RNA sequence: GAUAGAAGCCGGCAAACAUACAGUGAUGUAUGGGCGCAAAGUCGUAAAUCUUUUAUAGAAAGAUGGUUUGACUGCAAAA
Numbered sequence: 001g002a003u004a005g006a007a008g009c010c011g012g013c014a015a016a017c018a019u020a021c022a023g024u025g026a027u028g029u030a031u032g033g034g035c036g037c038a039a040a041g042u043c044g045u046a047a048a049u050c051u052u053u054u055a056u057a058g059a060a061a062g063a064u065g066g067u068u069u070g071a072c073u074g075c076a077a078a079a
Stems, first nucleotide, its partner, number of pairs: 012037002017032006040073004046068002048064007
RNA: c-di-GMP-I riboswitch aptamer